[Rfam]
RNA sequence: AAGCAUCUUUUUGACAGACCUGGAGCAAUGGCCUUGGCUCCUCUGGUUCUUGCUGAGAUGCAACAGUAACUGAGUCCUUGCGCUUUCCACCUGUCUGACUGGGCCAGGCUGGAUUGAAUAAAGGAACACAAAC
Numbered sequence: 001a002a003g004c005a006u007c008u009u010u011u012u013g014a015c016a017g018a019c020c021u022g023g024a025g026c027a028a029u030g031g032c033c034u035u036g037g038c039u040c041c042u043c044u045g046g047u048u049c050u051u052g053c054u055g056a057g058a059u060g061c062a063a064c065a066g067u068a069a070c071u072g073a074g075u076c077c078u079u080g081c082g083c084u085u086u087c088c089a090c091c092u093g094u095c096u097g098a099c100u101g102g103g104c105c106a107g108g109c110u111g112g113a114u115u116g117a118a119u120a121a122a123g124g125a126a127c128a129c130a131a132a133c
Base pairs, nucleotide, nucleotide: 003061004060005059006058007057008056012052013051017048018047019046020045023040024039025038026037027035028034075125076124077123078122079121083116086113087112088111089110091107092106093105095103
The record is a 133-nucleotide RNA from Ceyx cyanopectus, which matches "Small nucleolar RNA SNORA31" in Rfam. ACA31 (SNORA31) belongs to the H/ACA class of snoRNAs which are thought to guide the sites of modification of uridines to pseudouridines. ACA31 is predicted to guide the pseudouridylation of U3713 in 28S rRNA and U218 in 18S rRNA. This family includes the mouse homologue snoMBI-161. It is annotated as an H/ACA-box small nucleolar RNA. Pairs were carried over by alignment from the consensus structure, which was predicted with RNAalifold. For this family Rfam cites "RNomics: an experimental approach that identifies 201 candidates for novel, small, non-messenger RNAs in mouse" (Huttenhofer et al., EMBO J, 2001).